[Rfam]
RNA sequence: CCGAUUGCUCCAUCAAUCGUUCCCUAGUCGGACAUGCGGGGCUGGCAACGGUCCGGUGUGAAGCUCCGAUGACAAUGUAACCGCCGAGUAAUCGGUAAGCCGAGCCGCGAGGCAAAGCCGAAUCUGCUAGCACUAAAGCGGAGAGGGGC
Numbered sequence: 001c002c003g004a005u006u007g008c009u010c011c012a013u014c015a016a017u018c019g020u021u022c023c024c025u026a027g028u029c030g031g032a033c034a035u036g037c038g039g040g041g042c043u044g045g046c047a048a049c050g051g052u053c054c055g056g057u058g059u060g061a062a063g064c065u066c067c068g069a070u071g072a073c074a075a076u077g078u079a080a081c082c083g084c085c086g087a088g089u090a091a092u093c094g095g096u097a098a099g100c101c102g103a104g105c106c107g108c109g110a111g112g113c114a115a116a117g118c119c120g121a122a123u124c125u126g127c128u129a130g131c132a133c134u135a136a137a138g139c140g141g142a143g144a145g146g147g148g149c
Base pairs, nucleotide, nucleotide: 002019003018004017005016006015007014028069029068030067031066032065033060034059035058036057037056039054040053041052042051043050044049083096084095085094086093087092099118100117105112106111123142124141125140126139127138128137
RNA: Group II catalytic intron D1-D4-7
Organism: Mycoavidus cysteinexigens